[Rfam]
RNA sequence: AGGUGAGGUAGAGGCGCGGUGUUUAAGAGACUGUAGAGGAGCUGAGGAAGCGAUGAUUCUACGGGGGAGGAAAAACCGCCGAAGUGUGGAAUGCCCUCAGCUUUCCAUGCUGGGACUGCAGCAAACAGCUGCUGGACUGUCCAUAGGCCAAGACCCACGGCCCUAUGGUUGAGCUAUCUUAUCA
Numbered sequence: 001a002g003g004u005g006a007g008g009u010a011g012a013g014g015c016g017c018g019g020u021g022u023u024u025a026a027g028a029g030a031c032u033g034u035a036g037a038g039g040a041g042c043u044g045a046g047g048a049a050g051c052g053a054u055g056a057u058u059c060u061a062c063g064g065g066g067g068a069g070g071a072a073a074a075a076c077c078g079c080c081g082a083a084g085u086g087u088g089g090a091a092u093g094c095c096c097u098c099a100g101c102u103u104u105c106c107a108u109g110c111u112g113g114g115a116c117u118g119c120a121g122c123a124a125a126c127a128g129c130u131g132c133u134g135g136a137c138u139g140u141c142c143a144u145a146g147g148c149c150a151a152g153a154c155c156c157a158c159g160g161c162c163c164u165a166u167g168g169u170u171g172a173g174c175u176a177u178c179u180u181a182u183c184a
Stems, first nucleotide, its partner, number of pairs: 006179006016079005022073003031064008083111009093101002112138002116134001118132005140168001142167006

Lysine riboswitch aptamer: a 184-nucleotide RNA sequence from Proteiniclasticum ruminis.
It scores 98 bits against the family's covariance model.
Rfam links the family to the GO term lysine biosynthetic process.